[Rfam]
Potassium channel RNA editing signal: a 114-nucleotide RNA sequence from Phasianus colchicus. It is annotated as a cis-regulatory element. The family has 85 seed sequences and 14,095 matches in Rfam 15.1. This family represents a group of sequences related to the human potassium channel Kv1.1 hairpin element which directs the efficient modification of an adenosine to inosine by an adenosine deaminase acting on RNA (ADAR). The ADAR modification causes an isoleucine/valine recoding event which lies in the ion-conducting pore of the potassium channel. It is thought that this editing event targets the process of fast inactivation and allows a more rapid recovery from inactivation at negative potentials.
RNA sequence: UCCAGCUACGGUGACAUGGUGCCCAAGACCAUUGCUGGGAAGAUCUUCGGCUCCAUCUGCUCGCUGAGCGGGGUGCUGGUCAUCGCCCUGCCCGUUCCUGUCAUCGUCUCCAAU
Numbered sequence: 001u002c003c004a005g006c007u008a009c010g011g012u013g014a015c016a017u018g019g020u021g022c023c024c025a026a027g028a029c030c031a032u033u034g035c036u037g038g039g040a041a042g043a044u045c046u047u048c049g050g051c052u053c054c055a056u057c058u059g060c061u062c063g064c065u066g067a068g069c070g071g072g073g074u075g076c077u078g079g080u081c082a083u084c085g086c087c088c089u090g091c092c093c094g095u096u097c098c099u100g101u102c103a104u105c106g107u108c109u110c111c112a113a114u
Stems, first nucleotide, its partner, number of pairs: 001113001005110001008107004013102004018097002021095002037077002040074001050062001